[Rfam]
RNA sequence: CUCAAAAAUGGCGAUGGAGUUCGCCAUGUAACCGCCCCUGGGGCUGAUGACUCCUGCAAUUAA
Numbered sequence: 001c002u003c004a005a006a007a008a009u010g011g012c013g014a015u016g017g018a019g020u021u022c023g024c025c026a027u028g029u030a031a032c033c034g035c036c037c038c039u040g041g042g043g044c045u046g047a048u049g050a051c052u053c054c055u056g057c058a059a060u061u062a063a
Stems, first nucleotide, its partner, number of pairs: 010025004016054006034044003
RNA: Fluoride riboswitch aptamer (crcB RNA motif)